[Rfam]
RNA sequence: CAUGUUGAUUGUACUUCAUCAGGUGCUCUGGUAAAUUUUAAAUUCCCGGCAUCUGUUGUUGUGCAAUUCAUGUG
Numbered sequence: 001c002a003u004g005u006u007g008a009u010u011g012u013a014c015u016u017c018a019u020c021a022g023g024u025g026c027u028c029u030g031g032u033a034a035a036u037u038u039u040a041a042a043u044u045c046c047c048g049g050c051a052u053c054u055g056u057u058g059u060u061g062u063g064c065a066a067u068u069c070a071u072g073u074g
Stems, first nucleotide, its partner, number of pairs: 001074004010065003014061001017058002020055002023052005030046002